[Rfam]
Notes
This 82-nucleotide sequence from Anaerosolibacter carboniphilus belongs to the Rfam family "Clostridiales-2 RNA".
Nucleotides: 082
Base pairs, nucleotide, nucleotide: 015035016034017033018032019031020030021029022028056070057069058068059067060066
Number, partner (000 for none) and nucleotide at each position: 001000a002000a003000a004000a005000a006000a007000g008000a009000g010000g011000g012000g013000a014000u015035g016034u017033a018032g019031g020030g021029g022028a023000u024000g025000a026000a027000a028022u029021c030020c031019c032018c033017u034016g035015c036000c037000g038000u039000a040000g041000u042000a043000a044000g045000a046000g047000g048000g049000g050000u051000g052000c053000u054000c055000a056070g057069g058068c059067u060066g061000a062000c063000u064000u065000g066060c067059a068058g069057c070056c071000g072000u073000c074000g075000a076000a077000g078000g079000g080000g081000a082000a
The family's RNA type in Rfam is small RNA. The organism belongs to Anaerosolibacter, within Bacteria.